[Rfam]
RNA sequence: GAGCGAUGAUUAAAUCUACACGCUUGUGAUGGUAGGGUCUAUCACUAUCUUCUGAUUUAAGGAAGAGAAUGGGUGCGGCUGAGCUC
Numbered sequence: 001g002a003g004c005g006a007u008g009a010u011u012a013a014a015u016c017u018a019c020a021c022g023c024u025u026g027u028g029a030u031g032g033u034a035g036g037g038u039c040u041a042u043c044a045c046u047a048u049c050u051u052c053u054g055a056u057u058u059a060a061g062g063a064a065g066a067g068a069a070u071g072g073g074u075g076c077g078g079c080u081g082a083g084c085u086c
Stems, first nucleotide, its partner, number of pairs: 001086004
The record is an 86-nucleotide RNA sequence from Ricinus communis, which matches "small nucleolar RNA snoR114" in Rfam. Rfam's curators put it in the seed alignment. Its family is annotated with nucleolus and RNA processing in the Gene Ontology.